Description: The family of this 384-nucleotide RNA from Agreia sp. Leaf210 is "Bacterial RNase P class A". NCBI's taxonomy places the organism under Bacteria, Bacillati, Actinomycetota, Microbacteriaceae, Agreia. By type it is a ribozyme. Pairs were carried over by alignment from the consensus structure, which is taken from published work. A search with the family's covariance model found it, with a score of 293 bits. Rfam describes the family as follows. Ribonuclease P (RNase P) is a ubiquitous endoribonuclease, found in archaea, bacteria and eukarya as well as chloroplasts and mitochondria.
RNA sequence: UGGGUCGGUGAGACGGUCGCGUCAGUCGCGCAUCUUCGGAUGCUCGGCUGCCGAGGAACGUCCGGGCUCCACAGAGCAGGGCGGUGGGUAACACCCACCCGGGGCAACCCGCGAGACAGUGCCACAGAAAGUAGACCGCCUCAGGCUCACGCCUGCGGUAAGGGUGAAACGGUGGUGUAAGAGACCACCAGAGGCCAGGGUGACCUGGCCUGCUUGGUAAACCUCGCCCGGAGCAAGGUCAGACAGGGAACGCUCGAGACUGCUCGUCGAGUUCCCGGGUAGACCGCUAGAGGGCUGCGGCAACGUAGUCCCGAGAUAGAUGGCCGUCACGGGUCGGCGGCAACGCCGAUGCGGACAGAACCCGGCGUACGGCCGACCCAUUCA
Numbered sequence: 001u002g003g004g005u006c007g008g009u010g011a012g013a014c015g016g017u018c019g020c021g022u023c024a025g026u027c028g029c030g031c032a033u034c035u036u037c038g039g040a041u042g043c044u045c046g047g048c049u050g051c052c053g054a055g056g057a058a059c060g061u062c063c064g065g066g067c068u069c070c071a072c073a074g075a076g077c078a079g080g081g082c083g084g085u086g087g088g089u090a091a092c093a094c095c096c097a098c099c100c101g102g103g104g105c106a107a108c109c110c111g112c113g114a115g116a117c118a119g120u121g122c123c124a125c126a127g128a129a130a131g132u133a134g135a136c137c138g139c140c141u142c143a144g145g146c147u148c149a150c151g152c153c154u155g156c157g158g159u160a161a162g163g164g165u166g167a168a169a170c171g172g173u174g175g176u177g178u179a180a181g182a183g184a185c186c187a188c189c190a191g192a193g194g195c196c197a198g199g200g201u202g203a204c205c206u207g208g209c210c211u212g213c214u215u216g217g218u219a220a221a222c223c224u225c226g227c228c229c230g231g232a233g234c235a236a237g238g239u240c241a242g243a244c245a246g247g248g249a250a251c252g253c254u255c256g257a258g259a260c261u262g263c264u265c266g267u268c269g270a271g272u273u274c275c276c277g278g279g280u281a282g283a284c285c286g287c288u289a290g291a292g293g294g295c296u297g298c299g300g301c302a303a304c305g306u307a308g309u310c311c312c313g314a315g316a317u318a319g320a321u322g323g324c325c326g327u328c329a330c331g332g333g334u335c336g337g338c339g340g341c342a343a344c345g346c347c348g349a350u351g352c353g354g355a356c357a358g359a360a361c362c363c364g365g366c367g368u369a370c371g372g373c374c375g376a377c378c379c380a381u382u383c384a
Stems, first nucleotide, its partner, number of pairs: 001380009010370001012328007020053002023050006058368003062365005067233004074265004079229005084098005099113001100111004114224002119222002121218003136163002138159003142155005171189006191213001192211008237285004246276006258268003292311008